[Rfam]
RNA: Small nucleolar RNA SNORA58
Nucleotides: 136
Base pairs, nucleotide, nucleotide: 003061004060005059006058007057008056016047017046018045019044020043021042022041023040024039073129075127076126081122082121083120093112094111096109097108
Number, partner (000 for none) and nucleotide at each position: 001000g002000g003061g004060c005059a006058u007057a008056c009000c010000c011000g012000u013000a014000g015000a016047c017046c018045u019044u020043g021042c022041c023040u024039g025000a026000c027000u028000g029000u030000g031000c032000u033000c034000a035000u036000g037000g038000c039024c040023a041022g042021g043020c044019a045018g046017g047016g048000g049000g050000g051000a052000c053000a054000u055000u056008g057007u058006a059005u060004g061003c062000g063000a064000g065000a066000u067000u068000a069000a070000u071000u072000u073129g074000a075127a076126g077000u078000g079000c080000c081122u082121g083120c084000c085000a086000g087000c088000u089000u090000u091000a092000g093112c094111c095000a096109g097108c098000u099000u100000a101000a102000u103000c104000a105000g106000u107000g108097g109096c110000c111094g112093g113000a114000u115000a116000a117000a118000u119000a120083g121082c122081a123000g124000g125000a126076c127075u128000g129073u130000a131000a132000c133000a134000u135000u136000c